[Rfam]
RNA: U5 spliceosomal RNA
RNA sequence: UUACUCUGGUCUCUCUUCAAUUGUCGAAUAAAUCUUUCGCCUUUUACUAAAGAUUUCCGUGGAGAGGGACACUCUAAUGAGUCUAAACUAAAUUUUUGUUCGUCUCGAUCCUUAACUGGGUCG
Numbered sequence: 001u002u003a004c005u006c007u008g009g010u011c012u013c014u015c016u017u018c019a020a021u022u023g024u025c026g027a028a029u030a031a032a033u034c035u036u037u038c039g040c041c042u043u044u045u046a047c048u049a050a051a052g053a054u055u056u057c058c059g060u061g062g063a064g065a066g067g068g069a070c071a072c073u074c075u076a077a078u079g080a081g082u083c084u085a086a087a088c089u090a091a092a093u094u095u096u097u098g099u100u101c102g103u104c105u106c107g108a109u110c111c112u113u114a115a116c117u118g119g120g121u122c123g
Stems, first nucleotide, its partner, number of pairs: 003082004009070011030056008100123001102122001104120004